Streptomyces-metH RNA: a 124-nucleotide sequence from Wenjunlia vitaminophila.
The family's consensus secondary structure is taken from published work.

[Rfam]
RNA sequence: GAGUCCACCUAUGGAGACGCUCCAUGGCUGAUUGCAGUUUCUUGGUUACCCUGGCCAGGUGCCCGCCCGGACGCCCGGUGCGCGCAUAGCCGACAGCCGUCGCACUCCCAGGGAGAAUCCCAUG
Numbered sequence: 001g002a003g004u005c006c007a008c009c010u011a012u013g014g015a016g017a018c019g020c021u022c023c024a025u026g027g028c029u030g031a032u033u034g035c036a037g038u039u040u041c042u043u044g045g046u047u048a049c050c051c052u053g054g055c056c057a058g059g060u061g062c063c064c065g066c067c068c069g070g071a072c073g074c075c076c077g078g079u080g081c082g083c084g085c086a087u088a089g090c091c092g093a094c095a096g097c098c099g100u101c102g103c104a105c106u107c108c109c110a111g112g113g114a115g116a117a118u119c120c121c122a123u124g
Stems, first nucleotide, its partner, number of pairs: 060086003065081002068078001089103002092101003